Description
Shown here is a 97-nucleotide RNA from Tetracentron sinense, a member of the family "Small nucleolar RNA Z266". The match comes from Rfam's covariance-model search (97 bits). The organism belongs to Tetracentron, within Eukaryota.
RNA sequence: GAGUGGCAAGAAUGAUGAUUCAAUUAGAUGUGUGAAAGGAGAAACUUCUUCAUGAACUUAAACUUCUGAGGCAUAUUAUUUGUCUGACUUGCCACUC
Numbered sequence: 001g002a003g004u005g006g007c008a009a010g011a012a013u014g015a016u017g018a019u020u021c022a023a024u025u026a027g028a029u030g031u032g033u034g035a036a037a038g039g040a041g042a043a044a045c046u047u048c049u050u051c052a053u054g055a056a057c058u059u060a061a062a063c064u065u066c067u068g069a070g071g072c073a074u075a076u077u078a079u080u081u082g083u084c085u086g087a088c089u090u091g092c093c094a095c096u097c
Stems, first nucleotide, its partner, number of pairs: 001097010
Annotation
Pairs were carried over by alignment from the consensus structure, which was predicted with PFOLD. Rfam 15.1 lists 719 matches to the family in 213 species.